RNA sequence: GCAGUGAUACCGCCGCCGGUAUGCCCCUCGGGAAGGGCCGGUGCGGUGUUGAUGGGUCUCUUCCGUCUUGCCGGACGGGAGAUGAAGGGCUCAUUCGCUUAUGGCGCCCGGGAGUUGCCGUUCCCGGGCGCCGCAG
Numbered sequence: 001g002c003a004g005u006g007a008u009a010c011c012g013c014c015g016c017c018g019g020u021a022u023g024c025c026c027c028u029c030g031g032g033a034a035g036g037g038c039c040g041g042u043g044c045g046g047u048g049u050u051g052a053u054g055g056g057u058c059u060c061u062u063c064c065g066u067c068u069u070g071c072c073g074g075a076c077g078g079g080a081g082a083u084g085a086a087g088g089g090c091u092c093a094u095u096c097g098c099u100u101a102u103g104g105c106g107c108c109c110g111g112g113a114g115u116u117g118c119c120g121u122u123c124c125c126g127g128g129c130g131c132c133g134c135a136g
Stems, first nucleotide, its partner, number of pairs: 001098002006050002010046004015042005024035001052094004057089002061080008102133014
Rfam assigns this 136-nucleotide RNA sequence from Streptomyces sp. ERV7 to the family "Streptomyces RNA 6925".
The match comes from Rfam's covariance-model search (66 bits).
The family has 4 seed sequences and 63 matches in Rfam 15.1.